[Rfam]
RNA sequence: GAUGCUAUGAUGUGAUAAAAGCACGAAGAGUGUAAGAAGAGCAGUGGACAAUUACAAAUUCUGAAAAGGGUUUGUUCUUGCCGUGAGCUUUCCUAAUUAAACGACUUCUCCUUCCACUGAGCAUA
Numbered sequence: 001g002a003u004g005c006u007a008u009g010a011u012g013u014g015a016u017a018a019a020a021g022c023a024c025g026a027a028g029a030g031u032g033u034a035a036g037a038a039g040a041g042c043a044g045u046g047g048a049c050a051a052u053u054a055c056a057a058a059u060u061c062u063g064a065a066a067a068g069g070g071u072u073u074g075u076u077c078u079u080g081c082c083g084u085g086a087g088c089u090u091u092c093c094u095a096a097u098u099a100a101a102c103g104a105c106u107u108c109u110c111c112u113u114c115c116a117c118u119g120a121g122c123a124u125a
Stems, first nucleotide, its partner, number of pairs: 002124004
RNA: Small nucleolar RNA Z152/R70/R12/
Organism: Brassica rapa